[Rfam]
RNA sequence: CUCUGGUGAAGCAAAUGAGCCAGGGCAAAGGAG
Numbered sequence: 001c002u003c004u005g006g007u008g009a010a011g012c013a014a015a016u017g018a019g020c021c022a023g024g025g026c027a028a029a030g031g032a033g
Stems, first nucleotide, its partner, number of pairs: 001025007
The family of this 33-nucleotide RNA sequence from Enterococcus asini is "L31-Firmicutes ribosomal protein leader". The source organism's lineage runs through Bacteria, Bacillati, Lactobacillales, Enterococcus and Enterococcus asini. Its Rfam clan is "Ribosomal Protein L31 Leader clan". Rfam classes the family as a cis-regulatory leader. It is one of the family's seed sequences.